[Rfam]
RNA sequence: GUCAAGAGAGUCAGAAAACCCUGAAUUGAGUUGAAAC
Dot-bracket structure: .((((..((..(((......)))..))...))))...

Shown here is a 37-nucleotide RNA from Gymnodraco acuticeps, a member of the family "CRISPR RNA direct repeat element". Pairs were carried over by alignment from the consensus structure, which was predicted with WAR. Its family is annotated with defense response in the Gene Ontology. The organism belongs to Gymnodraco, within Eukaryota.